[Rfam]
RNA sequence: UGGUCUAGUGCUGUGUGGAAGACUAGUGAUUUUGUUGUUCUGAUGUACUAUGACAACAAGUCACAGCCGGCCUCAUAGCGCAGACUC
Number, nucleotide and partner (000 for none) at each position: 001u000002g086003g085004u084005c083006u082007a000008g081009u080010g000011c078012u077013g076014u075015g074016u000017g072018g071019a000020a000021g068022a000023c066024u065025a000026g064027u063028g062029a061030u060031u059032u058033u000034g057035u056036u055037g054038u053039u052040c000041u000042g000043a000044u000045g000046u000047a000048c000049u000050a000051u000052g039053a038054c037055a036056a035057c034058a032059a031060g030061u029062c028063a027064c026065a024066g023067c000068c021069g000070g000071c018072c017073u000074c015075a014076u013077a012078g011079c000080g009081c008082a006083g005084a004085c003086u002087c000

Record summary:
Rfam assigns this 87-nucleotide RNA sequence from Pongo pygmaeus to the family "mir-7 microRNA precursor family". From the family's description: This family represents the microRNA (miRNA) precursor mir-7. Rfam links the family to the GO terms RISC complex and miRNA-mediated post-transcriptional gene silencing. NCBI's taxonomy places the organism under Eukaryota, Dipnotetrapodomorpha, Tetrapoda, Ponginae, Pongo. The literature on the family includes a 2001 paper in Cell by Ambros, "microRNAs: tiny regulators with great potential".